[Rfam]
RNA sequence: CCUUCACUUGGGGGGAGCCGCGGUGCGGCGGCUGAGAGGUUCCCGGUUCGGAACGACCCCUGAACCUGAUCCGGUUCGCACCGGCGGAGGAACAAGUGCGCAUGCCAUG
Numbered sequence: 001c002c003u004u005c006a007c008u009u010g011g012g013g014g015g016a017g018c019c020g021c022g023g024u025g026c027g028g029c030g031g032c033u034g035a036g037a038g039g040u041u042c043c044c045g046g047u048u049c050g051g052a053a054c055g056a057c058c059c060c061u062g063a064a065c066c067u068g069a070u071c072c073g074g075u076u077c078g079c080a081c082c083g084g085c086g087g088a089g090g091a092a093c094a095a096g097u098g099c100g101c102a103u104g105c106c107a108u109g
Stems, first nucleotide, its partner, number of pairs: 006097005011060004017032005039054005065090003071084004

Rfam assigns this 109-nucleotide RNA sequence from Tistrella mobilis to the family "TPP riboswitch aptamer (THI element)". Pairs were carried over by alignment from the consensus structure, which is taken from published work. It scores 62 bits against the family's covariance model.